[Rfam]
RNA sequence: UAAAAAGCAGAGACCUAUUGCCAUAAAGUGAGUAGGUCUUUCGUUAACAUCAGGGAAAUUAGUUGUGUAUUGUUAUUGGGUGAACCACUUGAGUUUUCUCUAUGAUGGCAGGUUCAGUAAACGAUGCUACAUAU
Number, nucleotide and partner (000 for none) at each position: 001u000002a000003a000004a000005a050006a000007g048008c000009a000010g000011a039012g038013a000014c036015c035016u034017a033018u032019u031020g000021c000022c000023a000024u000025a000026a000027a000028g000029u000030g000031a019032g018033u017034a016035g015036g014037u000038c012039u011040u000041u000042c000043g000044u000045u000046a000047a000048c007049a000050u005051c000052a000053g000054g000055g000056a000057a000058a000059u000060u000061a000062g000063u000064u000065g000066u000067g127068u126069a125070u124071u123072g122073u121074u120075a000076u000077u000078g000079g000080g000081u116082g115083a114084a113085c112086c111087a000088c000089u000090u000091g000092a000093g000094u000095u000096u000097u000098c000099u000100c000101u000102a000103u000104g000105a000106u000107g000108g000109c000110a000111g086112g085113u084114u083115c082116a081117g000118u000119a000120a074121a073122c072123g071124a070125u069126g068127c067128u000129a000130c000131a000132u000133a000134u000